[Rfam]
RNA sequence: CCGGGUUGAGGUAGUAGGUUGUAUGGUUCCGAAUGAUACCUUGGGAGUUAACUGUACAACCUUCUAGCUUUCCUUG
Number, nucleotide and partner (000 for none) at each position: 001c076002c000003g074004g073005g072006u000007u000008g070009a069010g068011g000012u066013a065014g064015u000016a062017g061018g060019u059020u058021g057022u056023a055024u054025g053026g052027u051028u000029c000030c000031g000032a000033a000034u000035g000036a000037u000038a000039c000040c047041u046042u000043g000044g000045g000046a041047g040048u000049u000050a000051a027052c026053u025054g024055u023056a022057c021058a020059a019060c018061c017062u016063u000064c014065u013066a012067g000068c010069u009070u008071u000072c005073c004074u003075u000076g001
RNA: let-7 microRNA precursor family